[Rfam]
RNA sequence: GGAAGUUGAUGAGAUCUGGUUGGUCUCCACGGUCUUCAAAACCGUUGUCAGCCUAUUGGGCUGAGGUAGGUUCGAUUCCUGCCUCUUCC
Numbered sequence: 001g002g003a004a005g006u007u008g009a010u011g012a013g014a015u016c017u018g019g020u021u022g023g024u025c026u027c028c029a030c031g032g033u034c035u036u037c038a039a040a041a042c043c044g045u046u047g048u049c050a051g052c053c054u055a056u057u058g059g060g061c062u063g064a065g066g067u068a069g070g071u072u073c074g075a076u077u078c079c080u081g082c083c084u085c086u087u088c089c
Base pairs, nucleotide, nucleotide: 001089002088003087004086005085008082011027012026013025014024015023016022029045030044031043032042033041048064049063050062051061052060067081068080069079070078